Notes
Burkholderia RNA 7 (anti-hemB): an 85-nucleotide sequence from Oryzomicrobium terrae. Rfam classes the family as a small RNA. From the family's description: This RNA motif was identified by computational search in b-proteobacteria Burkholderia. Co-purified with Hfq, expression confirmed by Northern blot. The organism belongs to Oryzomicrobium, within Bacteria.

[Rfam]
RNA sequence: UCUCCCGCUUUACCUCCCUGAGCGGGUGCCUUAAUCACAUUAAGGCAUUUCACCCCCGGUUCCCCCUUAUCCGGGGGUUUUUUUU
Numbered sequence: 001u002c003u004c005c006c007g008c009u010u011u012a013c014c015u016c017c018c019u020g021a022g023c024g025g026g027u028g029c030c031u032u033a034a035u036c037a038c039a040u041u042a043a044g045g046c047a048u049u050u051c052a053c054c055c056c057c058g059g060u061u062c063c064c065c066c067u068u069a070u071c072c073g074g075g076g077g078u079u080u081u082u083u084u085u
Stems, first nucleotide, its partner, number of pairs: 004026006028046007053077007